[Rfam]
RNA sequence: CUGGAAGUUCAAGGCCAUAGCAGAAGCACUUAUGGCACAGCCUGUCAGAUUUCCAAGAAUCUAUUAAUUCUGCU
Numbered sequence: 001c002u003g004g005a006a007g008u009u010c011a012a013g014g015c016c017a018u019a020g021c022a023g024a025a026g027c028a029c030u031u032a033u034g035g036c037a038c039a040g041c042c043u044g045u046c047a048g049a050u051u052u053c054c055a056a057g058a059a060u061c062u063a064u065u066a067a068u069u070c071u072g073c074u
Stems, first nucleotide, its partner, number of pairs: 013042003019074007026038001047062006
A member of the RNA family "Mammalian CPEB3 ribozyme" from Alligator mississippiensis, 74 nucleotides long.
The organism belongs to Alligator, within Eukaryota.
On this family, see Salehi-Ashtiani et al., Science 2006: "A genomewide search for ribozymes reveals an HDV-like sequence in the human CPEB3 gene".